Rfam assigns this 73-nucleotide RNA sequence from Carlito syrichta to the family "Small nucleolar RNA SNORD115". The literature on the family includes a 2000 paper in Proc Natl Acad Sci U S A by Cavaille et al., "Identification of brain-specific and imprinted small nucleolar RNA genes exhibiting an unusual genomic organization". The match comes from Rfam's covariance-model search (39 bits). Gene Ontology terms of the family: nucleolus and RNA processing.
RNA sequence: GGGUCAAUGAUCAUAUUUUAUAUUGCCUGGAGAAAUGGUGAUGACUGAAAGUUCAUAUAUGAUGCUAAGGCCC
Numbered sequence: 001g002g003g004u005c006a007a008u009g010a011u012c013a014u015a016u017u018u019u020a021u022a023u024u025g026c027c028u029g030g031a032g033a034a035a036u037g038g039u040g041a042u043g044a045c046u047g048a049a050a051g052u053u054c055a056u057a058u059a060u061g062a063u064g065c066u067a068a069g070g071c072c073c
Stems, first nucleotide, its partner, number of pairs: 001073004006066001008064002